The record is a 131-nucleotide RNA from Vitis rotundifolia, which matches "MIR845_2 microRNA precursor family" in Rfam. The organism belongs to Vitis, within Eukaryota. The family has 2 seed sequences and 180 matches in Rfam 15.1. On this family, see Jaillon et al., Nature 2007: "The grapevine genome sequence suggests ancestral hexaploidization in major angiosperm phyla".
RNA sequence: AGAAUGCAUAUUAAUUAUCCCUAGGGCCAUGGGAUUAACAAAAACCCUGCAAAAAGAAGUUAGCAUACCCUAGAAUGGUUCUAACAUGAUUAAUAACCUAUGUCUCUUCUACCAGUUGAUGGGAAAAACCC
Number, nucleotide and partner (000 for none) at each position: 001a000002g000003a000004a000005u000006g000007c000008a000009u121010a120011u119012u118013a117014a116015u115016u114017a000018u000019c000020c000021c000022u000023a107024g106025g105026g104027c000028c102029a101030u100031g099032g098033g097034a000035u000036u000037a000038a000039c000040a000041a000042a000043a000044a000045c000046c000047c000048u086049g085050c000051a000052a000053a080054a079055a000056g000057a076058a000059g000060u073061u072062a071063g070064c000065a000066u000067a000068c000069c000070c063071u062072a061073g060074a000075a000076u057077g000078g000079u054080u053081c000082u000083a000084a000085c049086a048087u000088g000089a000090u000091u000092a000093a000094u000095a000096a000097c033098c032099u031100a030101u029102g028103u000104c026105u025106c024107u023108u000109c000110u000111a000112c000113c000114a016115g015116u014117u013118g012119a011120u010121g009122g000123g000124a000125a000126a000127a000128a000129c000130c000131c000